[Rfam]
RNA: BsrG
Organism: Chengkuizengella marina
RNA sequence: AUGUAUAAUAGUUGGUUUAUAUGGGCGGUAGGCUAUUACCCUUAAAGGGGGUGAGGCCAAAUGGAGAUUUUCAAUCUUUUGAUUAAUAUUGGAAGGUUAAUUAUCUCAAUUCUUGAAUUCCGCAGAAAACGGAAAAAGAGACCGCCCUCAUGCCAAUAGGUUGCGGUCUAUUCGUUCAAUAACGUUAUCCUACCGCCUUGUUAGACGGCUAUUGUACUUCCAACCGCGGGUGCUGUAACACUUGCG
Numbered sequence: 001a002u003g004u005a006u007a008a009u010a011g012u013u014g015g016u017u018u019a020u021a022u023g024g025g026c027g028g029u030a031g032g033c034u035a036u037u038a039c040c041c042u043u044a045a046a047g048g049g050g051g052u053g054a055g056g057c058c059a060a061a062u063g064g065a066g067a068u069u070u071u072c073a074a075u076c077u078u079u080u081g082a083u084u085a086a087u088a089u090u091g092g093a094a095g096g097u098u099a100a101u102u103a104u105c106u107c108a109a110u111u112c113u114u115g116a117a118u119u120c121c122g123c124a125g126a127a128a129a130c131g132g133a134a135a136a137a138g139a140g141a142c143c144g145c146c147c148u149c150a151u152g153c154c155a156a157u158a159g160g161u162u163g164c165g166g167u168c169u170a171u172u173c174g175u176u177c178a179a180u181a182a183c184g185u186u187a188u189c190c191u192a193c194c195g196c197c198u199u200g201u202u203a204g205a206c207g208g209c210u211a212u213u214g215u216a217c218u219u220c221c222a223a224c225c226g227c228g229g230g231u232g233c234u235g236u237a238a239c240a241c242u243u244g245c246g
Base pairs, nucleotide, nucleotide: 001219003217004216005215007213008212009211011209012192014190015189017187018152019151020150023147024146025145027142029139034053035052037051039049040048041047063121064120065119066118068116075082076081091113092112093111094110155176156175157174193208194207195206225246226245227244228243229242230241231240232239